[Rfam]
RNA sequence: GCAAUAGUGGCUUAUACGUGGGCGGUCGGCAUCACCUCGGAAAGGAGGUGAUGCUAUGGAGACGUUUCAGGCUCUUCAAUUAAUGUUCUUAUUUGGAAUGUUUAUUUUAGCGCUUCUAACGUUUAUCCAGAAAAUGAAAUAGAUCGCCCACCAUCCAAAGGUUAAGUGCGAUCUAUUCGUAAUUCCUUUAAGCCGACCGCUAGUAGCGCGGCUAUUGCCGACCGUGGACGUUCCAGCGUCUGCG
Numbered sequence: 001g002c003a004a005u006a007g008u009g010g011c012u013u014a015u016a017c018g019u020g021g022g023c024g025g026u027c028g029g030c031a032u033c034a035c036c037u038c039g040g041a042a043a044g045g046a047g048g049u050g051a052u053g054c055u056a057u058g059g060a061g062a063c064g065u066u067u068c069a070g071g072c073u074c075u076u077c078a079a080u081u082a083a084u085g086u087u088c089u090u091a092u093u094u095g096g097a098a099u100g101u102u103u104a105u106u107u108u109a110g111c112g113c114u115u116c117u118a119a120c121g122u123u124u125a126u127c128c129a130g131a132a133a134a135u136g137a138a139a140u141a142g143a144u145c146g147c148c149c150a151c152c153a154u155c156c157a158a159a160g161g162u163u164a165a166g167u168g169c170g171a172u173c174u175a176u177u178c179g180u181a182a183u184u185c186c187u188u189u190a191a192g193c194c195g196a197c198c199g200c201u202a203g204u205a206g207c208g209c210g211g212c213u214a215u216u217g218c219c220g221a222c223c224g225u226g227g228a229c230g231u232u233c234c235a236g237c238g239u240c241u242g243c244g
Stems, first nucleotide, its partner, number of pairs: 001218005007212001008195006018151007030050002033047001035045003058126001060124005071086002096117001098115001164180001166178001198208002223244009
RNA: BsrG